[Rfam]
RNA sequence: ACGACUAUGUGUAACUGGCGAGGUGCGGAUCGAACCGCAAGGGAGCACAUAGUGUCGAUAGCCGCUCGCCUGGGCAAAGGUA
Numbered sequence: 001a002c003g004a005c006u007a008u009g010u011g012u013a014a015c016u017g018g019c020g021a022g023g024u025g026c027g028g029a030u031c032g033a034a035c036c037g038c039a040a041g042g043g044a045g046c047a048c049a050u051a052g053u054g055u056c057g058a059u060a061g062c063c064g065c066u067c068g069c070c071u072g073g074g075c076a077a078a079g080g081u082a
Base pairs, nucleotide, nucleotide: 004053005052006051007050008049009048010047011046012045015042016041017070018069019068020067021066025038026037027036028035059077061075062074063073